[Rfam]
This 72-nucleotide RNA from Merluccius polli belongs to the Rfam family "miR-430 microRNA precursor family". The literature on the family includes a 2005 paper in Science by Giraldez et al., "MicroRNAs regulate brain morphogenesis in zebrafish". Its Rfam clan is "mir-290 clan".

RNA sequence: AUCAUUACCCUAACUUGAGCAUUCACUAUGCUGGUUCAAAUUUAGUAAGUGCUACUUGUUGGGGUAGUUUUU
Numbered sequence: 001a002u003c004a005u006u007a008c009c010c011u012a013a014c015u016u017g018a019g020c021a022u023u024c025a026c027u028a029u030g031c032u033g034g035u036u037c038a039a040a041u042u043u044a045g046u047a048a049g050u051g052c053u054a055c056u057u058g059u060u061g062g063g064g065u066a067g068u069u070u071u072u
Stems, first nucleotide, its partner, number of pairs: 004068008013059002017055001018053006025046003